[Rfam]
This 94-nucleotide RNA from Podarcis lilfordi belongs to the Rfam family "Vault RNA". This family of RNAs are found as part of the enigmatic vault ribonucleoprotein complex. The family's consensus secondary structure is taken from published work.
RNA sequence: GAGCUAGCUUAGCCUAGCGGUUACUUCAAUCUUGCAGGAUUCCUCAAGCCUCGGUGGAGGGUUUGAUACCCCGCGGGCGCUGUCUGGUUUUUUA
Numbered sequence: 001g002a003g004c005u006a007g008c009u010u011a012g013c014c015u016a017g018c019g020g021u022u023a024c025u026u027c028a029a030u031c032u033u034g035c036a037g038g039a040u041u042c043c044u045c046a047a048g049c050c051u052c053g054g055u056g057g058a059g060g061g062u063u064u065g066a067u068a069c070c071c072c073g074c075g076g077g078c079g080c081u082g083u084c085u086g087g088u089u090u091u092u093u094a
Base pairs, nucleotide, nucleotide: 002089003088004087005086006085007084012078013077014076015075017074018073019072020071026066027065028064029063